[Rfam]
Nucleotides: 121
Stems, first nucleotide, its partner, number of pairs: 001040010027054004045076005062105004080099004090117006
Number, partner (000 for none) and nucleotide at each position: 001040u002039a003038u004037c005036u006035a007034c008033a009032u010031c011000g012000u013000c014000g015000g016000g017000a018000u019000a020000a021000a022000a023000g024000a025000c026000a027054g028053c029052a030051g031010g032009g033008u034007g035006u036005a037004g038003g039002u040001g041000u042000a043000a044000u045076c046075c047074g048073c049072u050000a051030c052029u053028g054027u055000g056000g057000g058000a059000a060000a061000g062105u063104a064103a065102a066000u067000u068000u069000a070000a071000c072049a073048g074047c075046g076045g077000u078000a079000u080099g081098g082097g083096u084000g085000g086000c087000g088000a089000a090117g091116u092115u093114a094113g095112c096083g097082c098081c099080c100000u101000a102065u103064u104063u105062a106000c107000g108000a109000a110000c111000g112095g113094c114093u115092g116091a117090c118000g119000c120000g121000u
This 121-nucleotide RNA belongs to the Rfam family "Betaproteobacteria-1 RNA".